[Rfam]
RNA: SAM-I/IV (S-adenosyl methionine) riboswitch aptamer
RNA sequence: AACCGUCAUCAAGAGCGGGGCGUCGCCCCCACCAACCUGCCCGACCCGGCAAGGUGGUCGUCCUUCGGGAGAUGUGGCCGAUCCGGCAAUCUACGGGUGCAGC
Number, nucleotide and partner (000 for none) at each position: 001a000002a000003c000004c000005g000006u000007c074008a073009u072010c071011a000012a000013g000014a000015g030016c000017g029018g028019g027020g026021c025022g000023u000024c000025g021026c020027c019028c018029c017030c015031a058032c057033c056034a000035a000036c054037c053038u052039g050040c049041c048042c000043g000044a098045c097046c096047c095048g041049g040050c039051a000052a038053g037054g036055u000056g033057g032058u031059c000060g000061u000062c000063c000064u000065u000066c000067g000068g000069g000070a000071g010072a009073u008074g007075u000076g000077g087078c086079c085080g084081a000082u000083c000084c080085g079086g078087c077088a000089a000090u000091c000092u000093a000094c000095g047096g046097g045098u044099g000100c000101a000102g000103c000